[Rfam]
RNA: mir-9014 microRNA precursor family
RNA sequence: UGAGCCAUAGGGAGUGAUCCCAAUCCAGCCUGAGGAAAAAAAACCUUCCACGGGAGUCUUGGAGAUUGGCGACCAUCCUAAUGACUUA
Numbered sequence: 001u002g003a004g005c006c007a008u009a010g011g012g013a014g015u016g017a018u019c020c021c022a023a024u025c026c027a028g029c030c031u032g033a034g035g036a037a038a039a040a041a042a043a044c045c046u047u048c049c050a051c052g053g054g055a056g057u058c059u060u061g062g063a064g065a066u067u068g069g070c071g072a073c074c075a076u077c078c079u080a081a082u083g084a085c086u087u088a
Stems, first nucleotide, its partner, number of pairs: 002087003006083003010079004016073001018071001020069006029062002038060002041057001044054003